[Rfam]
RNA sequence: CAUUGCUUUUGUGGAAGACUGGUGAUAUGUUGUAAAGCUCCCCUACCAUACAGCGUAUCGCAGUUUUUCCCUAAAAACAUU
Numbered sequence: 001c002a003u004u005g006c007u008u009u010u011g012u013g014g015a016a017g018a019c020u021g022g023u024g025a026u027a028u029g030u031u032g033u034a035a036a037g038c039u040c041c042c043c044u045a046c047c048a049u050a051c052a053g054c055g056u057a058u059c060g061c062a063g064u065u066u067u068u069c070c071c072u073a074a075a076a077a078c079a080u081u
Stems, first nucleotide, its partner, number of pairs: 002080001004079002007076005013070002016066005022061013

Rfam assigns this 81-nucleotide sequence from Echinococcus granulosus to the family "mir-7 microRNA precursor family". Rfam's curators put it in the seed alignment. For this family Rfam cites "Identification of novel genes coding for small expressed RNAs" (Lagos-Quintana et al., Science, 2001). Rfam 15.1 lists 2,589 matches to the family in 797 species. Taxonomically the source falls in Echinococcus (Eukaryota, Eumetazoa, Neodermata, Cestoda).